This 109-nucleotide RNA from Sorghum bicolor belongs to the Rfam family "MIR5565 microRNA precursor family". Pairs were carried over by alignment from the consensus structure, which was predicted with RNAalifold. Rfam's curators put it in the seed alignment.
[Rfam]
RNA sequence: GUAGUCGGAUUCACAUCAAUCCACAUAUGUUGGAAUGGGUUGGAGUGUAAUUUGAACUAAAUUCCACCUCAAUCCACUUCAACACAUGUGGAUUGAGAUGAAUACGAUA
Dot-bracket structure: ...((((.(((((..(((((((((((.(((((...((((((((.(((.................))).))))))))...))))).)))))))))))..))))).)))).